A member of the RNA family "Plant signal recognition particle RNA" from Ipomoea nil, 307 nucleotides long.
RNA sequence: GCUGGGCUUGGUAGCGCGAGCCUAUAAUCCAAGUGGGAGCAUUAAGAUGGUGGAACAGUUGGCCUUUCCUUGAAGGCUGGGCCUUGGCUGUUAUCUAUUGGCUUGCCCGUUCCAAGUGGUGAGUUGUGCCAUGGGUUCUCUGCGAAGGCAGAGGCUGCUUCUUGGUCCUUAGAUUGGAGGGCAGUGCGUGAGGCUGGCUUCACAGAGCAGCGAAAACCUCCUCCUCUCUGCAGUGGAAGGAUAACUGGCCAAUGCAUCCACUACCCAAUAAUGCCUGACGGGCUGUCUAAAUUGAACCACCAUCUUU
Numbered sequence: 001g002c003u004g005g006g007c008u009u010g011g012u013a014g015c016g017c018g019a020g021c022c023u024a025u026a027a028u029c030c031a032a033g034u035g036g037g038a039g040c041a042u043u044a045a046g047a048u049g050g051u052g053g054a055a056c057a058g059u060u061g062g063c064c065u066u067u068c069c070u071u072g073a074a075g076g077c078u079g080g081g082c083c084u085u086g087g088c089u090g091u092u093a094u095c096u097a098u099u100g101g102c103u104u105g106c107c108c109g110u111u112c113c114a115a116g117u118g119g120u121g122a123g124u125u126g127u128g129c130c131a132u133g134g135g136u137u138c139u140c141u142g143c144g145a146a147g148g149c150a151g152a153g154g155c156u157g158c159u160u161c162u163u164g165g166u167c168c169u170u171a172g173a174u175u176g177g178a179g180g181g182c183a184g185u186g187c188g189u190g191a192g193g194c195u196g197g198c199u200u201c202a203c204a205g206a207g208c209a210g211c212g213a214a215a216a217c218c219u220c221c222u223c224c225u226c227u228c229u230g231c232a233g234u235g236g237a238a239g240g241a242u243a244a245c246u247g248g249c250c251a252a253u254g255c256a257u258c259c260a261c262u263a264c265c266c267a268a269u270a271a272u273g274c275c276u277g278a279c280g281g282g283c284u285g286u287c288u289a290a291a292u293u294g295a296a297c298c299a300c301c302a303u304c305u306u307u
Base pairs, nucleotide, nucleotide: 001040002039003038004023005022006021007020008019009018010017028037029036030035044306045305046304047303048302049301050300051299052298053297056294057293059291060290062287064285067282069281070280074276075275076274077273079266080265081264085260086259089256090255092254093253098252099251100250101249102248103247105245107240108239110238111237112236113235114234116231117230118229119228121226122225123224126168128166129165130164131163133161134160135159137154138153139152140151141150142149143148176221177220178219179218180217185214187212188211189210194205195204196203

The organism belongs to Ipomoea, within Eukaryota. By type it is a non-coding RNA gene.